RNA sequence: UCCGCGCUCGAAGGAUCGCAUUCAAAGCUCACGCACAGCAGGUGCCCAUUCAGCAUCUGCAUACCCUUCUAGCUUUGGGAGAAAGUCCCCGGACCGCCCUACCUUUCCGCGCCCACGCGCGGUAAAGAACGUCAGGACCUGCCGCGAGGCACCGCCAUAAAAGCACCACCACUGCGGUCUACGCCCGCCUCCCGCUCUCUCCUCAGGCCCCUCUGAGCUACGGCCCGCCGACCUCAUCGUCGCUUGUAUUCCUUUUCCUCCGUGCGGGCGGGUGUUGGCGCCUCAACGCUGACGGGAGAUUCAUCCUGGAGAAGUGGAUGAAGAUACGAGUCCGCUCUCCACCACGGGAUGUUUUCUCUGUGAAGCCGAGACGCUGGACCCCACCCCACGGGGAAAUGUGAAGAGAAGGAGAGGGUACAUAAAUUGGGCGUGUGCCGUUCUGGCUCGGGGACUCGUCUGAGGAAGCUUACGAGUGAUUUUUGGAGGUUGCGCAAUUCGUCAUAUGUUGAAAGUUAUGCGAUUUCUCUGGCUGGUGCGGCUUCCUCUUAAGAGAGGCCGCUCCGACGCCGAGUAACUCGAUGGGGCUUAUUCUCGAGGCGCGG
Numbered sequence: 001u002c003c004g005c006g007c008u009c010g011a012a013g014g015a016u017c018g019c020a021u022u023c024a025a026a027g028c029u030c031a032c033g034c035a036c037a038g039c040a041g042g043u044g045c046c047c048a049u050u051c052a053g054c055a056u057c058u059g060c061a062u063a064c065c066c067u068u069c070u071a072g073c074u075u076u077g078g079g080a081g082a083a084a085g086u087c088c089c090c091g092g093a094c095c096g097c098c099c100u101a102c103c104u105u106u107c108c109g110c111g112c113c114c115a116c117g118c119g120c121g122g123u124a125a126a127g128a129a130c131g132u133c134a135g136g137a138c139c140u141g142c143c144g145c146g147a148g149g150c151a152c153c154g155c156c157a158u159a160a161a162a163g164c165a166c167c168a169c170c171a172c173u174g175c176g177g178u179c180u181a182c183g184c185c186c187g188c189c190u191c192c193c194g195c196u197c198u199c200u201c202c203u204c205a206g207g208c209c210c211c212u213c214u215g216a217g218c219u220a221c222g223g224c225c226c227g228c229c230g231a232c233c234u235c236a237u238c239g240u241c242g243c244u245u246g247u248a249u250u251c252c253u254u255u256u257c258c259u260c261c262g263u264g265c266g267g268g269c270g271g272g273u274g275u276u277g278g279c280g281c282c283u284c285a286a287c288g289c290u291g292a293c294g295g296g297a298g299a300u301u302c303a304u305c306c307u308g309g310a311g312a313a314g315u316g317g318a319u320g321a322a323g324a325u326a327c328g329a330g331u332c333c334g335c336u337c338u339c340c341a342c343c344a345c346g347g348g349a350u351g352u353u354u355u356c357u358c359u360g361u362g363a364a365g366c367c368g369a370g371a372c373g374c375u376g377g378a379c380c381c382c383a384c385c386c387c388a389c390g391g392g393g394a395a396a397u398g399u400g401a402a403g404a405g406a407a408g409g410a411g412a413g414g415g416u417a418c419a420u421a422a423a424u425u426g427g428g429c430g431u432g433u434g435c436c437g438u439u440c441u442g443g444c445u446c447g448g449g450g451a452c453u454c455g456u457c458u459g460a461g462g463a464a465g466c467u468u469a470c471g472a473g474u475g476a477u478u479u480u481u482g483g484a485g486g487u488u489g490c491g492c493a494a495u496u497c498g499u500c501a502u503a504u505g506u507u508g509a510a511a512g513u514u515a516u517g518c519g520a521u522u523u524c525u526c527u528g529g530c531u532g533g534u535g536c537g538g539c540u541u542c543c544u545c546u547u548a549a550g551a552g553a554g555g556c557c558g559c560u561c562c563g564a565c566g567c568c569g570a571g572u573a574a575c576u577c578g579a580u581g582g583g584g585c586u587u588a589u590u591c592u593c594g595a596g597g598c599g600c601g602g
Stems, first nucleotide, its partner, number of pairs: 002602006008595004014522006022079001023077006038060007083587003087584004107122006398470004453463002456460001524571003528567001
This 602-nucleotide RNA from Cladophialophora yegresii belongs to the Rfam family "RNase MRP". The family's RNA type in Rfam is ribozyme. The match comes from Rfam's covariance-model search (98 bits). RNase MRP is an enzymatically active ribonucleoprotein with two distinct roles in eukaryotes. In mitochondria it plays a direct role in the initiation of mitochondrial DNA replication. In the nucleus it is involved in precursor rRNA processing, where it cleaves the internal transcribed spacer 1 between 18S and 5.8S rRNAs.